RNA sequence: CAACGUGAGCACUUAUUCAAACCGGUUGUGGUGUUGAAAAAAUUCAUCACAACCUCCUUGAAUGAGUGUUCAUAUUG
Number, nucleotide and partner (000 for none) at each position: 001c000002a000003a000004c000005g000006u000007g000008a069009g000010c000011a000012c066013u065014u064015a063016u062017u061018c060019a059020a058021a000022c000023c000024g054025g053026u000027u051028g050029u049030g048031g047032u046033g045034u000035u000036g000037a000038a000039a000040a000041a000042a000043u000044u000045c033046a032047u031048c030049a029050c028051a027052a000053c025054c024055u000056c000057c000058u020059u019060g018061a017062a016063u015064g014065a013066g012067u000068g000069u008070u000071c000072a000073u000074a000075u000076u000077g000
mir-67 microRNA precursor family: a 77-nucleotide RNA from Mytilus coruscus. Rfam 15.1 lists 196 matches to the family in 188 species. The source organism's lineage runs through Eukaryota, Eumetazoa, Spiralia, Lophotrochozoa and Mytilus.